Notes
Rfam assigns this 126-nucleotide RNA sequence from Fischerella thermalis to the family "Nitrogen stress-induced RNA 9". A search with the family's covariance model found it, with a score of 90 bits.

[Rfam]
RNA sequence: UAUCACGUCUGUGACUGUGAGUGUGGCUAAUCACACAUUUAGUCACUGUUGCUGAUUGUUGGGAAGGUGUAGGUACACCCUUUGCGGGUGUUAUCCUGCAAGACGGGCAUCUCUAAAAAGAUGCCC
Numbered sequence: 001u002a003u004c005a006c007g008u009c010u011g012u013g014a015c016u017g018u019g020a021g022u023g024u025g026g027c028u029a030a031u032c033a034c035a036c037a038u039u040u041a042g043u044c045a046c047u048g049u050u051g052c053u054g055a056u057u058g059u060u061g062g063g064a065a066g067g068u069g070u071a072g073g074u075a076c077a078c079c080c081u082u083u084g085c086g087g088g089u090g091u092u093a094u095c096c097u098g099c100a101a102g103a104c105g106g107g108c109a110u111c112u113c114u115a116a117a118a119a120g121a122u123g124c125c126c
Base pairs, nucleotide, nucleotide: 006067008065010063012061013060014059015058017056018055020053021052022051023046024045025044026043027042028041029040068100069099070098071097072096073095077091078090079088080087105126106125107124108123109122110121111120112119